[Rfam]
RNA sequence: CCCGAACGACAGGGGAGCGUCCGCCCCCCGGCCCUCCGGCCGGUGUGCGGGACGCUGAGAGUGCGGAUCUCCGCAGACCCUCGCACCUGAUCCGGUUCGCACCGGCGUAGGGAGUCGGGCUUCUCAGUCC
Numbered sequence: 001c002c003c004g005a006a007c008g009a010c011a012g013g014g015g016a017g018c019g020u021c022c023g024c025c026c027c028c029c030g031g032c033c034c035u036c037c038g039g040c041c042g043g044u045g046u047g048c049g050g051g052a053c054g055c056u057g058a059g060a061g062u063g064c065g066g067a068u069c070u071c072c073g074c075a076g077a078c079c080c081u082c083g084c085a086c087c088u089g090a091u092c093c094g095g096u097u098c099g100c101a102c103c104g105g106c107g108u109a110g111g112g113a114g115u116c117g118g119g120c121u122u123c124u125c126a127g128u129c130c
Base pairs, nucleotide, nucleotide: 007117008116009115010114011081012080013079014078017055018054019053020052021051062075063074064073065072066071086111087110088109089108092105093104094103095102
A member of the RNA family "TPP riboswitch aptamer (THI element)" from Cellulomonas marina, 130 nucleotides long.
A search with the family's covariance model found it, with a score of 56 bits.
Rfam's curators write: Vitamin B(1) in its active form thiamin pyrophosphate (TPP) is an essential coenzyme that is synthesised by coupling of pyrimidine and thiazole moieties in bacteria. The previously detected thiamin-regulatory element, thi box was extended, resulting in a new, highly conserved RNA secondary structure, the THI element, which is widely distributed in eubacteria and also occurs in some archaea. Analysis of operon structures identified a large number of new candidate thiamin-regulated genes, mostly transporters, in various prokaryotic organisms. The THI element is a riboswitch that directly binds to TPP to regulate gene expression through a variety of mechanisms in archaea, bacteria and eukaryotes. through a variety of mechanisms in archaea, bacteria and eukaryotes.